Notes:
Small nucleolar RNA psi28S-1192: a 135-nucleotide RNA from Operophtera brumata. By type it is an H/ACA-box small nucleolar RNA. The family's consensus secondary structure was predicted with ILM.
RNA sequence: UUUGUGUCUGUUCUAAUACCACAGAGCCUAAAAUUAGCUUUGUGGCUUCGCUUUCAGACUAAAUUAACUCUUCAAACCUAUCCUAGUGUGAGUUUCUAAACAUGAACAUUGCACUGGUAUCUUGGAGAAACAUCU
Number, nucleotide and partner (000 for none) at each position: 001u000002u000003u000004g000005u000006g059007u058008c057009u056010g055011u000012u000013c000014u000015a000016a000017u000018a000019c045020c044021a043022c042023a041024g040025a039026g038027c000028c000029u000030a000031a000032a000033a000034u000035u000036a000037g000038c026039u025040u024041u023042g022043u021044g020045g019046c000047u000048u000049c000050g000051c000052u000053u000054u000055c010056a009057g008058a007059c006060u000061a000062a000063a000064u000065u000066a000067a000068c000069u128070c127071u126072u125073c124074a123075a122076a000077c000078c000079u000080a000081u000082c000083c117084u116085a115086g114087u113088g112089u000090g000091a000092g000093u000094u000095u000096c000097u000098a000099a000100a000101c000102a000103u000104g000105a000106a000107c000108a000109u000110u000111g000112c088113a087114c086115u085116g084117g083118u000119a000120u000121c000122u075123u074124g073125g072126a071127g070128a069129a000130a000131c000132a000133u000134c000135u000

The family has 15 seed sequences and 81 matches in Rfam 15.1.
psi28S-1192 is a member of the H/ACA class of snoRNA. This family is responsible for guiding the modification of uridine 1192 to pseudouridine in Drosophila 28S rRNA.
Its family is annotated with RNA processing and nucleolus in the Gene Ontology.